The family of this 83-nucleotide sequence from Solanum tuberosum is "MIR828 microRNA precursor family". On this family, see Ma et al., Plant Cell 2010: "Arabidopsis lyrata small RNAs: transient MIRNA and small interfering RNA loci within the Arabidopsis genus". Its family is annotated with miRNA-mediated post-transcriptional gene silencing and RISC complex in the Gene Ontology. Lineage of the source: Eukaryota > Spermatophyta > Magnoliopsida > Solanaceae > Solanum.
RNA sequence: GGAAAGCCUCUUGCUCAAAUGAGUAUUCCAACAAAUGUCUAAUUGACAUACUUUGAGAUACUCAUUUGGGCAAGAAGUUUUAC
Numbered sequence: 001g002g003a004a005a006g007c008c009u010c011u012u013g014c015u016c017a018a019a020u021g022a023g024u025a026u027u028c029c030a031a032c033a034a035a036u037g038u039c040u041a042a043u044u045g046a047c048a049u050a051c052u053u054u055g056a057g058a059u060a061c062u063c064a065u066u067u068g069g070g071c072a073a074g075a076a077g078u079u080u081u082a083c
Stems, first nucleotide, its partner, number of pairs: 004080004010074018029055002
Dot-bracket structure: ...((((..((((((((((((((((((.((.......................)).))))))))))))))))))..))))...